[Rfam]
RNA sequence: AACACACUUAAUGAACGUCACACAUAUACCGGCACAUCGUGUCUGGGUGCCUCCGGCGGCAAGCCGCAGGGGGUUGACCGGUGGGGUAUAUGGAGGCCUAAC
Number, nucleotide and partner (000 for none) at each position: 001a000002a000003c000004a000005c000006a000007c000008u000009u000010a000011a000012u000013g000014a000015a000016c000017g000018u000019c000020a000021c000022a000023c092024a091025u090026a089027u088028a087029c086030c085031g000032g000033c000034a000035c083036a082037u081038c080039g079040u000041g078042u077043c076044u000045g000046g000047g000048u000049g074050c073051c072052u071053c070054c000055g000056g000057c000058g000059g000060c000061a000062a000063g000064c000065c000066g000067c000068a000069g000070g053071g052072g051073g050074u049075u000076g043077a042078c041079c039080g038081g037082u036083g035084g000085g030086g029087u028088a027089u026090a025091u024092g023093g000094a000095g000096g000097c000098c000099u000100a000101a000102c000
RNA: t44 RNA
Organism: Pseudomaricurvus sp. HS19